The record is a 73-nucleotide RNA from Saccharolobus solfataricus, which matches "Sulfolobus sRNA133" in Rfam. Taxonomically the source falls in Saccharolobus solfataricus (Archaea, Thermoproteota, Sulfolobales, Saccharolobus). For this family Rfam cites "Identification of novel non-coding RNAs as potential antisense regulators in the archaeon Sulfolobus solfataricus" (Tang et al., Mol Microbiol, 2005). The pairing is the family consensus, mapped onto this sequence. This RNA has structural homologues in 3 archaeon Sulfolobus genomes: tokodaii, acidocalarius and solfotaricus. It shows extensive compensatory base changes, possibly consistent with a functional role. The sequence is in the family's curated seed alignment.
RNA sequence: AAGAUGCUCAAUGAAACCCCCAUGUCCUCGAAGGGAGUGGUUUGACUACCGCUCCCGUAGACGGCACGGGGAG
Numbered sequence: 001a002a003g004a005u006g007c008u009c010a011a012u013g014a015a016a017c018c019c020c021c022a023u024g025u026c027c028u029c030g031a032a033g034g035g036a037g038u039g040g041u042u043u044g045a046c047u048a049c050c051g052c053u054c055c056c057g058u059a060g061a062c063g064g065c066a067c068g069g070g071g072a073g
Stems, first nucleotide, its partner, number of pairs: 017071004023066004028061002033056009